[Rfam]
RNA sequence: UAUCUAUGAUGAUAUCCUUAAGGCUUGUUUCUCAUGAACAUUCGCAGUGGCCGCCUGAUUGAGCUUUCGCCUUCGCCAGGCUUGAGAGCUCAUGCUGCUCUUUCCUUCCUUGGAUGUCUGAGAUC
Numbered sequence: 001u002a003u004c005u006a007u008g009a010u011g012a013u014a015u016c017c018u019u020a021a022g023g024c025u026u027g028u029u030u031c032u033c034a035u036g037a038a039c040a041u042u043c044g045c046a047g048u049g050g051c052c053g054c055c056u057g058a059u060u061g062a063g064c065u066u067u068c069g070c071c072u073u074c075g076c077c078a079g080g081c082u083u084g085a086g087a088g089c090u091c092a093u094g095c096u097g098c099u100c101u102u103u104c105c106u107u108c109c110u111u112g113g114a115u116g117u118c119u120g121a122g123a124u125c
Stems, first nucleotide, its partner, number of pairs: 002124003063089006
The record is a 125-nucleotide sequence from Helianthus annuus, which matches "Small nucleolar RNA SNORD14" in Rfam. The literature on the family includes a 1996 paper in Nucleic Acids Res by Samarsky et al., "An essential domain in Saccharomyces cerevisiae U14 snoRNA is absent in vertebrates, but conserved in other yeasts". The organism belongs to Helianthus, within Eukaryota. It scores 73 bits against the family's covariance model. Pairs were carried over by alignment from the consensus structure, which was predicted with PFOLD. From the family's description: U14 small nucleolar RNA (U14 snoRNA) is required for early cleavages of eukaryotic precursor rRNAs. In yeasts, this molecule possess a stem-loop region (known as the Y-domain) which is essential for function. A similar structure, but with a different consensus sequence, is found in plants, but is absent in vertebrates. The family has 18 seed sequences and 4,559 matches in Rfam 15.1.